Shown here is a 52-nucleotide sequence from Pannonibacter phragmitetus, a member of the family "Xanthine riboswitch aptamer (NMT1 RNA)".
For this family Rfam cites "A bacterial riboswitch class senses xanthine and uric acid to regulate genes associated with purine oxidation" (Yu and Breaker, RNA, 2020).
Rfam links the family to the GO term purine nucleobase binding.
Nucleotides: 052
Base pairs, nucleotide, nucleotide: 005048006047007046008045009044010043015037019038021035022034023033024032025031
Number, partner (000 for none) and nucleotide at each position: 001000c002000c003000c004000c005048g006047g007046a008045g009044u010043a011000g012000a013000a014000g015037c016000u017000g018000u019038c020000a021035a022034c023033g024032c025031c026000a027000u028000c029000c030000c031025g032024g033023c034022g035021u036000g037015g038019g039000u040000c041000a042000u043010u044009g045008c046007u047006c048005c049000u050000c051000a052000a